[Rfam]
RNA sequence: AAACGAAGGUUACUUCGGAAAAAAAGGUAAGGUAAGCUUGGCGGGCCUUGCCCCUUGAGGAAGCGCAAGUGGAAUUAAGGCAUAUGUCACCAGCUCCAACAGAAGAGGUCGUACUCAACUGGAAUUACGAAAAGGAGUUAGGCGGGAGUCUGAAAAAAGAAACAAAAAGAUGACCAAAUUAAAAGGAGCGGGCCGUUUUGACCUGAUCCGGAAAAUGGUAUCCUGAGAAGGGAUGCGAUGACUACCAUUAGCCAGGAGGCGUAAAGAAAUCGAGCGAAGCUCCGGCCGGAAAUAUUAUUUAAGGUCGAAAAGAUGGAAAUGCGACUAAGGGAUUGAAUGACAAGGCAAGUUGCUAAAUCCCAAACGGUAGCAGUAAGAAUGUUACCGACUGCGAAUAAAAAAGUAAUCUGAGAGAUAAAAGGCCAGACCCGUACCCUUGGGCAAACACUUCACCAAAAGUGGAGGUCGACCUGGGGGAAAAGGAAAGGAAUGAAACCGUCGCGGAUAAAUUCCUAGCCGUGUCUGAAUAAAGAAAUCGGCAGAUGACAAUAUUCAGGCUGAGAGGCCUUACUCAAUAACUUGAUUGGGAAAUCAAUUAAGCGGUCCUGCUACGAGAUCGAUAGCUUCCUUGCCAGGAAGAAUAGCGUCGGGGAACUGACAACCUGCGAAAGUGGAGUGCCAAAUGUUAGUGAAGGACGAGAGUGUGGCGAGCUCC
Numbered sequence: 001a002a003a004c005g006a007a008g009g010u011u012a013c014u015u016c017g018g019a020a021a022a023a024a025a026g027g028u029a030a031g032g033u034a035a036g037c038u039u040g041g042c043g044g045g046c047c048u049u050g051c052c053c054c055u056u057g058a059g060g061a062a063g064c065g066c067a068a069g070u071g072g073a074a075u076u077a078a079g080g081c082a083u084a085u086g087u088c089a090c091c092a093g094c095u096c097c098a099a100c101a102g103a104a105g106a107g108g109u110c111g112u113a114c115u116c117a118a119c120u121g122g123a124a125u126u127a128c129g130a131a132a133a134g135g136a137g138u139u140a141g142g143c144g145g146g147a148g149u150c151u152g153a154a155a156a157a158a159g160a161a162a163c164a165a166a167a168a169g170a171u172g173a174c175c176a177a178a179u180u181a182a183a184a185g186g187a188g189c190g191g192g193c194c195g196u197u198u199u200g201a202c203c204u205g206a207u208c209c210g211g212a213a214a215a216u217g218g219u220a221u222c223c224u225g226a227g228a229a230g231g232g233a234u235g236c237g238a239u240g241a242c243u244a245c246c247a248u249u250a251g252c253c254a255g256g257a258g259g260c261g262u263a264a265a266g267a268a269a270u271c272g273a274g275c276g277a278a279g280c281u282c283c284g285g286c287c288g289g290a291a292a293u294a295u296u297a298u299u300u301a302a303g304g305u306c307g308a309a310a311a312g313a314u315g316g317a318a319a320u321g322c323g324a325c326u327a328a329g330g331g332a333u334u335g336a337a338u339g340a341c342a343a344g345g346c347a348a349g350u351u352g353c354u355a356a357a358u359c360c361c362a363a364a365c366g367g368u369a370g371c372a373g374u375a376a377g378a379a380u381g382u383u384a385c386c387g388a389c390u391g392c393g394a395a396u397a398a399a400a401a402a403g404u405a406a407u408c409u410g411a412g413a414g415a416u417a418a419a420a421g422g423c424c425a426g427a428c429c430c431g432u433a434c435c436c437u438u439g440g441g442c443a444a445a446c447a448c449u450u451c452a453c454c455a456a457a458a459g460u461g462g463a464g465g466u467c468g469a470c471c472u473g474g475g476g477g478a479a480a481a482g483g484a485a486a487g488g489a490a491u492g493a494a495a496c497c498g499u500c501g502c503g504g505a506u507a508a509a510u511u512c513c514u515a516g517c518c519g520u521g522u523c524u525g526a527a528u529a530a531a532g533a534a535a536u537c538g539g540c541a542g543a544u545g546a547c548a549a550u551a552u553u554c555a556g557g558c559u560g561a562g563a564g565g566c567c568u569u570a571c572u573c574a575a576u577a578a579c580u581u582g583a584u585u586g587g588g589a590a591a592u593c594a595a596u597u598a599a600g601c602g603g604u605c606c607u608g609c610u611a612c613g614a615g616a617u618c619g620a621u622a623g624c625u626u627c628c629u630u631g632c633c634a635g636g637a638a639g640a641a642u643a644g645c646g647u648c649g650g651g652g653a654a655c656u657g658a659c660a661a662c663c664u665g666c667g668a669a670a671g672u673g674g675a676g677u678g679c680c681a682a683a684u685g686u687u688a689g690u691g692a693a694g695g696a697c698g699a700g701a702g703u704g705u706g707g708c709g710a711g712c713u714c715c
Stems, first nucleotide, its partner, number of pairs: 004017005026052008036042001063070002092139006105116003109130005145175002149170002159199005185209003189205004214249005220234004237408003241404002286304002329361006338352003412573003419569004435476007448464006486514006521558009532547001535544003579600009601619005608645004624639006654690007661677002664673003700714003
Shown here is a 715-nucleotide RNA, a member of the family "MISL RNA". It is annotated as a small RNA.